RNA sequence: AGAGUUGGUGGCUAGGGUUCCGGCGCUUCGGCGCGGCUGGUCCGAGAGCUGCCACUGGCCGGGAGAGACAUCCCGCCAGGUGCACGGCGGGACAAAAGCCCGGGAGAC
Numbered sequence: 001a002g003a004g005u006u007g008g009u010g011g012c013u014a015g016g017g018u019u020c021c022g023g024c025g026c027u028u029c030g031g032c033g034c035g036g037c038u039g040g041u042c043c044g045a046g047a048g049c050u051g052c053c054a055c056u057g058g059c060c061g062g063g064a065g066a067g068a069c070a071u072c073c074c075g076c077c078a079g080g081u082g083c084a085c086g087g088c089g090g091g092a093c094a095a096a097a098g099c100c101c102g103g104g105a106g107a108c
Base pairs, nucleotide, nucleotide: 007053008052009051010050011049012048015043016042020040021039022037023034024033025032026031054081055080056079058077060075061074062073063072064071083103085106089101090100091099
The record is a 108-nucleotide RNA from Devosia sp. Root413D1, which matches "Guanidine-I riboswitch aptamer" in Rfam. Rfam describes the family as follows. This family represents a conserved RNA structure found upstream of the ykkC and yxkD genes in Bacillus subtilis and related genes in other bacteria. The function of this family is unclear although it has been suggested that it may function to switch on efflux pumps and detoxification systems in response to harmful environmental molecules. The match comes from Rfam's covariance-model search (80 bits). NCBI's taxonomy places the organism under Bacteria, Pseudomonadati, Pseudomonadota, Alphaproteobacteria, Devosia.